[Rfam]
Rfam assigns this 172-nucleotide RNA from Thermoanaerobacterium thermosaccharolyticum to the family "Group II catalytic intron D1-D4-3".
RNA sequence: UCCAUCGUGAGGUGGAAUCUGAAGGAAGCGGUAGGCAAAAUCUCGGUCUGAUGAACAAAAACCAGAUAAGAGGCUGAAUUGGGGCGGACGAGUUUGCAAGUCAAAACGAAGUCCAACACUACCCGAACCCCAUACAGUAAAUCUGGCAGAUAUAUGAGAUGAAGGUUAUCGC
Numbered sequence: 001u002c003c004a005u006c007g008u009g010a011g012g013u014g015g016a017a018u019c020u021g022a023a024g025g026a027a028g029c030g031g032u033a034g035g036c037a038a039a040a041u042c043u044c045g046g047u048c049u050g051a052u053g054a055a056c057a058a059a060a061a062c063c064a065g066a067u068a069a070g071a072g073g074c075u076g077a078a079u080u081g082g083g084g085c086g087g088a089c090g091a092g093u094u095u096g097c098a099a100g101u102c103a104a105a106a107c108g109a110a111g112u113c114c115a116a117c118a119c120u121a122c123c124c125g126a127a128c129c130c131c132a133u134a135c136a137g138u139a140a141a142u143c144u145g146g147c148a149g150a151u152a153u154a155u156g157a158g159a160u161g162a163a164g165g166u167u168a169u170c171g172c
Stems, first nucleotide, its partner, number of pairs: 001016006028172005035166002040160006046151005062146006073138003078133002081131004086114004092107004